[Rfam]
RNA: small Cajal body-specific RNA 18
RNA sequence: CGGUCGGUGAUGACGUGACCACUGCGCAAUCUGAGUUUUGGAAACCAGAUGAUGGAGUGUGAGCUAAGCACGGACUGAGGCCG
Numbered sequence: 001c002g003g004u005c006g007g008u009g010a011u012g013a014c015g016u017g018a019c020c021a022c023u024g025c026g027c028a029a030u031c032u033g034a035g036u037u038u039u040g041g042a043a044a045c046c047a048g049a050u051g052a053u054g055g056a057g058u059g060u061g062a063g064c065u066a067a068g069c070a071c072g073g074a075c076u077g078a079g080g081c082c083g
Base pairs, nucleotide, nucleotide: 002082003081004080005079038048039047040046041045